The family of this 72-nucleotide sequence from Medicago truncatula is "MIR2629 microRNA precursor family". Taxonomically the source falls in Medicago (Eukaryota, Euphyllophyta, eudicotyledons, Fabaceae). A search with the family's covariance model found it, with a score of 63 bits. Gene Ontology terms of the family: RISC complex and miRNA-mediated post-transcriptional gene silencing.
[Rfam]
RNA sequence: UCCCGAGAUUUUCCUCGGCAGUUAACUGCCGCCGGUUUCAUUUUUCCUCGGUAGUUAACUGCUGAGGCGUCC
Numbered sequence: 001u002c003c004c005g006a007g008a009u010u011u012u013c014c015u016c017g018g019c020a021g022u023u024a025a026c027u028g029c030c031g032c033c034g035g036u037u038u039c040a041u042u043u044u045u046c047c048u049c050g051g052u053a054g055u056u057a058a059c060u061g062c063u064g065a066g067g068c069g070u071c072c
Base pairs, nucleotide, nucleotide: 013067015065016064017063018062019061020060021059022058023057024056025055026054027053028052029051030050031049